[Rfam]
RNA sequence: UGCAUGGGGACCGCGAUCUCCCCACGAGGCGGCAGGCUGAAGAAUCGCGUCCUGACUGGAUUUGAAAGGACGCUGCCAUG
Numbered sequence: 001u002g003c004a005u006g007g008g009g010a011c012c013g014c015g016a017u018c019u020c021c022c023c024a025c026g027a028g029g030c031g032g033c034a035g036g037c038u039g040a041a042g043a044a045u046c047g048c049g050u051c052c053u054g055a056c057u058g059g060a061u062u063u064g065a066a067a068g069g070a071c072g073c074u075g076c077c078a079u080g
Base pairs, nucleotide, nucleotide: 005024006023007022008021009020010019047073048072049071050070051069052068